[Rfam]
RNA: mir-9195 microRNA precursor family
Organism: Myotis myotis
RNA sequence: AGAGGCCCACUGUGGCCAGGGUGGAACACUUGCCUCGUUGCUGUGGUGAUGAAGCAAGCAUUCCGCCAGGCCGCUCACACUGCCUGC
Number, nucleotide and partner (000 for none) at each position: 001a000002g000003a000004g084005g083006c082007c000008c000009a000010c000011u000012g074013u073014g072015g071016c070017c069018a000019g000020g067021g066022u065023g064024g063025a062026a061027c000028a000029c058030u057031u056032g055033c054034c000035u000036c000037g050038u049039u048040g047041c046042u000043g000044u000045g000046g041047u040048g039049a038050u037051g000052a000053a000054g033055c032056a031057a030058g029059c000060a000061u026062u025063c024064c023065g022066c021067c020068a000069g017070g016071c015072c014073g013074c012075u000076c000077a000078c000079a000080c000081u000082g006083c005084c004085u000086g000087c000